Makes More Granules Regulator RNA (mmgR): a 72-nucleotide RNA from Paramagnetospirillum magnetotacticum. Rfam 15.1 lists 1,791 matches to the family in 918 species. SuhB later renamed mmgR (makes more granules regulator) was a putative non-coding RNA found multiple times in the Agrobacterium tumefaciens genome and related alpha-proteobacteria. Rfam classes the family as a small RNA. Rfam's curators put it in the seed alignment.
RNA sequence: GCCCGUAGCCCUUCUGGGCGUUUCUCCCUAGACUUCGGGCCGUCCUUCGGGGCGGCUUUUUCUUUCAAAGGC
Numbered sequence: 001g002c003c004c005g006u007a008g009c010c011c012u013u014c015u016g017g018g019c020g021u022u023u024c025u026c027c028c029u030a031g032a033c034u035u036c037g038g039g040c041c042g043u044c045c046u047u048c049g050g051g052g053c054g055g056c057u058u059u060u061u062c063u064u065u066c067a068a069a070g071g072c
Base pairs, nucleotide, nucleotide: 008019009018010017011016038057039056040055041054042053043052044051045050